[Rfam]
RNA sequence: AGACUCCCAGCUCUGCCCAGUUACACUAGGCUUCGCCUGUGUGGCUUCUGUAAUGGGGAGGGAGAGAAAGGAUCUCCCCAGGACCUCAGAUUGGCUUUACUGUGGCAUCUCUUUCCUUGAGGGACACAAUAGGU
Numbered sequence: 001a002g003a004c005u006c007c008c009a010g011c012u013c014u015g016c017c018c019a020g021u022u023a024c025a026c027u028a029g030g031c032u033u034c035g036c037c038u039g040u041g042u043g044g045c046u047u048c049u050g051u052a053a054u055g056g057g058g059a060g061g062g063a064g065a066g067a068a069a070g071g072a073u074c075u076c077c078c079c080a081g082g083a084c085c086u087c088a089g090a091u092u093g094g095c096u097u098u099a100c101u102g103u104g105g106c107a108u109c110u111c112u113u114u115c116c117u118u119g120a121g122g123g124a125c126a127c128a129a130u131a132g133g134u
Stems, first nucleotide, its partner, number of pairs: 004064005011058005019046008075123003080118003088112003094106003